[Rfam]
RNA sequence: UACGGAGGUUUUCCUCGACAGUUAACUGCAGCCGGUUUCAAAUUACUCGACAGUUAACUACCGAGGAAACA
Number, nucleotide and partner (000 for none) at each position: 001u000002a000003c000004g000005g000006a000007g000008g000009u000010u000011u000012u067013c066014c000015u064016c063017g062018a000019c000020a059021g058022u057023u056024a055025a054026c053027u052028g051029c000030a000031g000032c000033c000034g000035g000036u000037u000038u000039c000040a000041a000042a000043u000044u000045a000046c000047u000048c000049g000050a000051c028052a027053g026054u025055u024056a023057a022058c021059u020060a000061c000062c017063g016064a015065g000066g013067a012068a000069a000070c000071a000
The family of this 71-nucleotide sequence from Medicago truncatula is "MIR2629 microRNA precursor family".